A member of the RNA family "Small nucleolar RNA U83B" from Monodelphis domestica, 93 nucleotides long.
On this family, see Duga et al., Biochim Biophys Acta 2000: "The intron-containing L3 ribosomal protein gene (RPL3): sequence analysis and identification of U43 and of two novel intronic small nucleolar RNAs".
Gene Ontology terms of the family: RNA processing and nucleolus.
The family's RNA type in Rfam is C/D-box small nucleolar RNA.
The base pairs follow the family's consensus structure.
From the family's description: U83B belongs to the C/D family of snoRNAs. U83B like U83A has no documented RNA target and they share the same host gene with the C/D box snoRNA U43 (RPL3). N.B. U83A/B/C have no sequence similarity with the U83 snoRNA that was cloned by Jady and Kiss (2000).
Rfam's curators put it in the seed alignment.
NCBI's taxonomy places the organism under Eukaryota, Sarcopterygii, Amniota, Didelphimorphia, Monodelphis.
RNA sequence: CUUGUUCAGUGAUGAAGUCAUGGAAUAAGCGCUGGGCACAGCGCCCGAGCCUGAUGAGGAGAUAUUCCUUGCUGCCUUCCUUCUGAGAACAGC
Numbered sequence: 001c002u003u004g005u006u007c008a009g010u011g012a013u014g015a016a017g018u019c020a021u022g023g024a025a026u027a028a029g030c031g032c033u034g035g036g037c038a039c040a041g042c043g044c045c046c047g048a049g050c051c052u053g054a055u056g057a058g059g060a061g062a063u064a065u066u067c068c069u070u071g072c073u074g075c076c077u078u079c080c081u082u083c084u085g086a087g088a089a090c091a092g093c
Stems, first nucleotide, its partner, number of pairs: 002092004